[Rfam]
RNA: LOOT RNA
RNA sequence: AACCUAAACCAAACAAUGUUUGGCAUGGUUUACUGAAUUCAUGGAUAAAUAAAAGCUCGUCAUGAGUCGCUAUUUCUCUAUAGUCGGUACUGGAAACGGUAUCGGGUAGCUUCGGCUAUC
Numbered sequence: 001a002a003c004c005u006a007a008a009c010c011a012a013a014c015a016a017u018g019u020u021u022g023g024c025a026u027g028g029u030u031u032a033c034u035g036a037a038u039u040c041a042u043g044g045a046u047a048a049a050u051a052a053a054a055g056c057u058c059g060u061c062a063u064g065a066g067u068c069g070c071u072a073u074u075u076c077u078c079u080a081u082a083g084u085c086g087g088u089a090c091u092g093g094a095a096a097c098g099g100u101a102u103c104g105g106g107u108a109g110c111u112u113c114g115g116c117u118a119u120c
Base pairs, nucleotide, nucleotide: 001030002029003028004027009023010022011021012020013019014018039083041081042080043079044078045077047075048074049073055067056066057065058064085104086103087102088101089100090099091098092097105120106119107118108117109116110115